[Rfam]
RNA sequence: CGUCGGAUCUCCGUAGUUUAGAGUGUUUUAUCACCCAUUUCCACGUGGCGAUAAAUGCAUCUUAACUGCGGUGACCUGAAA
Numbered sequence: 001c002g003u004c005g006g007a008u009c010u011c012c013g014u015a016g017u018u019u020a021g022a023g024u025g026u027u028u029u030a031u032c033a034c035c036c037a038u039u040u041c042c043a044c045g046u047g048g049c050g051a052u053a054a055a056u057g058c059a060u061c062u063u064a065a066c067u068g069c070g071g072u073g074a075c076c077u078g079a080a081a
Stems, first nucleotide, its partner, number of pairs: 003079004008074002011071008021061002027055006034048002
RNA: mir-232 microRNA precursor family